[Rfam]
RNA sequence: AGAAUCCUAAUUUACUUGUAAUUGCUUUUCAACUCUUUUGACCGAACAAUCAAUCGUCGGGAACCCAUAUUUUAUCUUGGCAAACAAGCCCUGCAACUGGCCGAGGGAAGUUUAAAGGGAUGAAGAGGGUACCCACCUGCAUGGGAAGCGGGUUCAAAACGAUGUUACUUGCUUACGGUAUGUUUAGGAUUCUA
Numbered sequence: 001a002g003a004a005u006c007c008u009a010a011u012u013u014a015c016u017u018g019u020a021a022u023u024g025c026u027u028u029u030c031a032a033c034u035c036u037u038u039u040g041a042c043c044g045a046a047c048a049a050u051c052a053a054u055c056g057u058c059g060g061g062a063a064c065c066c067a068u069a070u071u072u073u074a075u076c077u078u079g080g081c082a083a084a085c086a087a088g089c090c091c092u093g094c095a096a097c098u099g100g101c102c103g104a105g106g107g108a109a110g111u112u113u114a115a116a117g118g119g120a121u122g123a124a125g126a127g128g129g130u131a132c133c134c135a136c137c138u139g140c141a142u143g144g145g146a147a148g149c150g151g152g153u154u155c156a157a158a159a160c161g162a163u164g165u166u167a168c169u170u171g172c173u174u175a176c177g178g179u180a181u182g183u184u185u186a187g188g189a190u191u192c193u194a
Stems, first nucleotide, its partner, number of pairs: 002192009013180003017177003034162002037158001039156003042152002059134003063130004068125001070124001072123007084111002089107004
RNA: 6S / SsrS RNA
Organism: Lysinibacillus halotolerans